The family of this 100-nucleotide RNA from Bacillus subtilis is "Purine riboswitch aptamer". On this family, see Mandal et al., Cell 2003: "Riboswitches Control Fundamental Biochemical Pathways in Bacillus subtilis and Other Bacteria". Its family is annotated with purine nucleobase biosynthetic process in the Gene Ontology. The family is grouped with related families in Rfam's "Purine riboswitches". The base pairs follow the family's consensus structure, which is taken from published work.

RNA sequence: AGAAAUCAAAUAAGAUGAAUUCGUAUAAUCGCGGGAAUAUGGCUCGCAAGUCUCUACCAAGCUACCGUAAAUGGCUUGACUACGUAAACAUUUCUUUCGU
Numbered sequence: 001a002g003a004a005a006u007c008a009a010a011u012a013a014g015a016u017g018a019a020u021u022c023g024u025a026u027a028a029u030c031g032c033g034g035g036a037a038u039a040u041g042g043c044u045c046g047c048a049a050g051u052c053u054c055u056a057c058c059a060a061g062c063u064a065c066c067g068u069a070a071a072u073g074g075c076u077u078g079a080c081u082a083c084g085u086a087a088a089c090a091u092u093u094c095u096u097u098c099g100u
Stems, first nucleotide, its partner, number of pairs: 020086001022084004029049001031047005058078007